The record is a 149-nucleotide sequence from Paenibacillus sp. FSL R5-0912, which matches "FMN riboswitch aptamer (RFN element)" in Rfam. The match comes from Rfam's covariance-model search (116 bits). Taxonomically the source falls in Paenibacillus (Bacteria, Bacillati, Bacillota, Caryophanales). For this family Rfam cites "Regulation of riboflavin biosynthesis and transport genes in bacteria by transcriptional and translational attenuation" (Vitreschak et al., Nucleic Acids Res, 2002). Its family is annotated with FMN binding in the Gene Ontology.
RNA sequence: CAAGAUUCUCGGGGUAAGGUGAAAUUCCUGACCGGCGGUGAUGUUCCAAGUGAACUAAGCCCGCGACUCGUUACUCUUUUACAAGAGAAAGCGACUGAUCUGGUGACAAUCCAGAGCCGACGGUAAAGUCCGGAUGGGAGAGGAUCAUA
Numbered sequence: 001c002a003a004g005a006u007u008c009u010c011g012g013g014g015u016a017a018g019g020u021g022a023a024a025u026u027c028c029u030g031a032c033c034g035g036c037g038g039u040g041a042u043g044u045u046c047c048a049a050g051u052g053a054a055c056u057a058a059g060c061c062c063g064c065g066a067c068u069c070g071u072u073a074c075u076c077u078u079u080u081a082c083a084a085g086a087g088a089a090a091g092c093g094a095c096u097g098a099u100c101u102g103g104u105g106a107c108a109a110u111c112c113a114g115a116g117c118c119g120a121c122g123g124u125a126a127a128g129u130c131c132g133g134a135u136g137g138g139a140g141a142g143g144a145u146c147a148u149a
Base pairs, nucleotide, nucleotide: 004146005145006144007143008142009141010140017029018028019027031129032128033119034118035064036063037062038061059117060116068094069093070092071091072090099115100114101113102112103111121132122131123130